[Rfam]
RNA sequence: AAAACUGUAGGUUACUGGCGGAACAUGGGCAACCAUGGGGGAGCCCACAGAUAUAAGCCGUACGCCUGGGCAAAGUAU
Numbered sequence: 001a002a003a004a005c006u007g008u009a010g011g012u013u014a015c016u017g018g019c020g021g022a023a024c025a026u027g028g029g030c031a032a033c034c035a036u037g038g039g040g041g042a043g044c045c046c047a048c049a050g051a052u053a054u055a056a057g058c059c060g061u062a063c064g065c066c067u068g069g070g071c072a073a074a075g076u077a078u
Base pairs, nucleotide, nucleotide: 003052005050006049007048008047010045011044012043015040016039017066018065019064020063025036026035027034028033057071058070059069
RNA: ZMP/ZTP riboswitch aptamer (pfl RNA motif)